[Rfam]
Nucleotides: 104
Stems, first nucleotide, its partner, number of pairs: 010094006
Number, partner (000 for none) and nucleotide at each position: 001000g002000g003000a004000u005000u006000c007000c008000a009000a010094g011093g012092a013091a014090g015089g016000g017000a018000u019000g020000a021000u022000g023000u024000u025000c026000u027000a028000a029000g030000u031000a032000a033000g034000a035000c036000c037000c038000a039000a040000g041000a042000a043000a044000a045000g046000g047000a048000u049000u050000c051000u052000g053000a054000g055000c056000c057000u058000c059000a060000g061000a062000g063000c064000u065000u066000u067000g068000a069000a070000g071000g072000a073000c074000c075000c076000a077000c078000u079000u080000g081000g082000u083000u084000c085000c086000u087000g088000a089015c090014c091013u092012u093011c094010c095000a096000u097000c098000g099000g100000g101000a102000u103000c104000c
The record is a 104-nucleotide sequence from Peromyscus maniculatus, which matches "Small nucleolar RNA SNORD124" in Rfam. It is annotated as a C/D-box small nucleolar RNA. Its family is annotated with nucleolus and RNA processing in the Gene Ontology.